[Rfam]
RNA: mir-355 microRNA precursor family
Organism: Caenorhabditis briggsae
RNA sequence: AUCGGAUGGUUUGUUUUAGCCUGAGCUAUGUGUUAUUGCAUAUUCAUAGCUACUUGCUAAAACAUACCAAUCGAG
Numbered sequence: 001a002u003c004g005g006a007u008g009g010u011u012u013g014u015u016u017u018a019g020c021c022u023g024a025g026c027u028a029u030g031u032g033u034u035a036u037u038g039c040a041u042a043u044u045c046a047u048a049g050c051u052a053c054u055u056g057c058u059a060a061a062a063c064a065u066a067c068c069a070a071u072c073g074a075g
Stems, first nucleotide, its partner, number of pairs: 003073003007069004012064009023053001024051007032043002